This 136-nucleotide RNA sequence from Actinobacillus indolicus belongs to the Rfam family "Molybdenum/Tungsten riboswitch aptamer (Moco RNA motif)". The base pairs follow the family's consensus structure, which is taken from published work.
RNA sequence: UUAUUAAAUAGACCCCGAGCCUGUUUUCCUAAGUCUAGCGAUAUGGAAACUGUGCCUGUAAUUUGUUGAUUACACAGGGAAAGUUGAGAAAUUGGCUUUCCUCUCAUACUUAGAAAGGUGUCAAAAUGCAAAUCCC
Number, nucleotide and partner (000 for none) at each position: 001u000002u000003a000004u000005u000006a127007a000008a000009u000010a000011g122012a121013c120014c000015c118016c117017g000018a000019g055020c054021c000022u052023g051024u000025u049026u048027u047028c046029c045030u000031a000032a000033g042034u041035c040036u000037a000038g000039c000040g035041a034042u033043a000044u000045g029046g028047a027048a026049a025050c000051u023052g022053u000054g020055c019056c000057u074058g073059u072060a071061a070062u000063u000064u000065g000066u000067u000068g000069a000070u061071u060072a059073c058074a057075c000076a000077g102078g101079g100080a099081a098082a097083g096084u095085u094086g093087a092088g000089a000090a000091a000092u087093u086094g085095g084096c083097u082098u081099u080100c079101c078102u077103c113104u112105c000106a000107u000108a000109c000110u000111u000112a104113g103114a000115a000116a000117g016118g015119u000120g013121u012122c011123a000124a000125a000126a000127u006128g000129c000130a000131a000132a000133u000134c000135c000136c000
Notes: On this family, see Regulski et al., Mol Microbiol 2008: "in molybdenum cofactor and tungsten cofactor metabolism".